This 314-nucleotide RNA from Sediminicola sp. YIK13 belongs to the Rfam family "Bacterial RNase P class A".
The match comes from Rfam's covariance-model search (206 bits).
RNA sequence: UUAGCAGGUCGCUCUAUCGCUUCCAAUGUAAAUUGGGAGAGGAAAGUCCGGACACCAUAGUGCAGUAUAGCGGGUAAUGCCCGUCCGCCGAGAGGUGAGGACAAGUGCAACAGAAAGGAUGUACAGGUAAUGCUGUAGUGAAACCAGGUAAACUCUAUGCGGUGCAACGUCAUGUAAAUCAGUGUUUGAGGGCUGCACGCCCGAGCUGAAGGGUAGGCGGUUUGAGCUUUUGGGCAACCAAAGGCCUAGAUAAAUGAUAGGGGGUUCCUGAUAACUCAGGAUGAACAGAAUCCGGCUUAUGACCUGCUUUUUUU
Numbered sequence: 001u002u003a004g005c006a007g008g009u010c011g012c013u014c015u016a017u018c019g020c021u022u023c024c025a026a027u028g029u030a031a032a033u034u035g036g037g038a039g040a041g042g043a044a045a046g047u048c049c050g051g052a053c054a055c056c057a058u059a060g061u062g063c064a065g066u067a068u069a070g071c072g073g074g075u076a077a078u079g080c081c082c083g084u085c086c087g088c089c090g091a092g093a094g095g096u097g098a099g100g101a102c103a104a105g106u107g108c109a110a111c112a113g114a115a116a117g118g119a120u121g122u123a124c125a126g127g128u129a130a131u132g133c134u135g136u137a138g139u140g141a142a143a144c145c146a147g148g149u150a151a152a153c154u155c156u157a158u159g160c161g162g163u164g165c166a167a168c169g170u171c172a173u174g175u176a177a178a179u180c181a182g183u184g185u186u187u188g189a190g191g192g193c194u195g196c197a198c199g200c201c202c203g204a205g206c207u208g209a210a211g212g213g214u215a216g217g218c219g220g221u222u223u224g225a226g227c228u229u230u231u232g233g234g235c236a237a238c239c240a241a242a243g244g245c246c247u248a249g250a251u252a253a254a255u256g257a258u259a260g261g262g263g264g265u266u267c268c269u270g271a272u273a274a275c276u277c278a279g280g281a282u283g284a285a286c287a288g289a290a291u292c293c294g295g296c297u298u299a300u301g302a303c304c305u306g307c308u309u310u311u312u313u314u
Stems, first nucleotide, its partner, number of pairs: 003308009012262007020039008044298003048295005053164004060198004065160005070084005085099001086097004100155002105153002107149002168219004179209005190202004226245008